[Rfam]
RNA sequence: GGCUGGUUCGAGUGCAGUGGUGUUAUAACUAACUGAUCACAACCAGUUAUAGAAUUCCUUAUUCCUUCUCCACUCUCACUGCUUCACUUGACUAGCUUAAA
Numbered sequence: 001g002g003c004u005g006g007u008u009c010g011a012g013u014g015c016a017g018u019g020g021u022g023u024u025a026u027a028a029c030u031a032a033c034u035g036a037u038c039a040c041a042a043c044c045a046g047u048u049a050u051a052g053a054a055u056u057c058c059u060u061a062u063u064c065c066u067u068c069u070c071c072a073c074u075c076u077c078a079c080u081g082c083u084u085c086a087c088u089u090g091a092c093u094a095g096c097u098u099a100a101a
Stems, first nucleotide, its partner, number of pairs: 001097008010089002014085001016080005022075001027063002031059001
The family of this 101-nucleotide RNA from Microcebus murinus is "Y RNA". The family's consensus secondary structure is taken from published work. It is annotated as a non-coding RNA gene. Taxonomically the source falls in Microcebus (Eukaryota, Chordata, Craniata, Eutheria).